[Rfam]
Shown here is an 84-nucleotide RNA from Neomonachus schauinslandi, a member of the family "NoRC associated RNA, pRNA". Rfam 15.1 lists 354 matches to the family in 128 species. The source organism's lineage runs through Eukaryota, Bilateria, Sarcopterygii, Mammalia and Neomonachus. A reference for the family is Mayer et al. (2008), "The structure of NoRC-associated RNA is crucial for targeting the chromatin remodelling complex NoRC to the nucleolus", EMBO Rep. It is annotated as a non-coding RNA gene.

RNA sequence: CGAUGGACUAGUGCUUGGGGCCCGUGGCCGGGCCACCGCCCCAGGAGAUCCCGGUGACCUGUGGCUAGGCCCCGCCAGGCGGCG
Numbered sequence: 001c002g003a004u005g006g007a008c009u010a011g012u013g014c015u016u017g018g019g020g021c022c023c024g025u026g027g028c029c030g031g032g033c034c035a036c037c038g039c040c041c042c043a044g045g046a047g048a049u050c051c052c053g054g055u056g057a058c059c060u061g062u063g064g065c066u067a068g069g070c071c072c073c074g075c076c077a078g079g080c081g082g083c084g
Stems, first nucleotide, its partner, number of pairs: 004081001008078002011076001018072003026065001028063001029061002032058001034056005